The family of this 137-nucleotide RNA sequence from Prodigiosinella confusarubida is "Salmonella enterica Typhi npcRNA 44". Pairs were carried over by alignment from the consensus structure, which was predicted with CMfinder. A search with the family's covariance model found it, with a score of 67 bits. Taxonomically the source falls in Prodigiosinella (Bacteria, Pseudomonadati, Pseudomonadota, Enterobacterales).
RNA sequence: CUUUAACAAUCUGGAACAAGCUGAAAAUUGAAACGAUACAGCGAAACCUGCCUUGAUGGCGGGAGUUGGCUGUAUCAGAGUCUCUCAAAUAAUCGCAGCGCGAGGUGGUCUUGCUCUUUUGAAAAAGACACCUUCGG
Numbered sequence: 001c002u003u004u005a006a007c008a009a010u011c012u013g014g015a016a017c018a019a020g021c022u023g024a025a026a027a028u029u030g031a032a033a034c035g036a037u038a039c040a041g042c043g044a045a046a047c048c049u050g051c052c053u054u055g056a057u058g059g060c061g062g063g064a065g066u067u068g069g070c071u072g073u074a075u076c077a078g079a080g081u082c083u084c085u086c087a088a089a090u091a092a093u094c095g096c097a098g099c100g101c102g103a104g105g106u107g108g109u110c111u112u113g114c115u116c117u118u119u120u121g122a123a124a125a126a127g128a129c130a131c132c133u134u135c136g137g
Stems, first nucleotide, its partner, number of pairs: 020096002023094002027090003034078001036075007101136003104132004
On this family, see Chinni et al., Nucleic Acids Res 2010: "Experimental identification and characterization of 97 novel npcRNA candidates in Salmonella enterica serovar Typhi".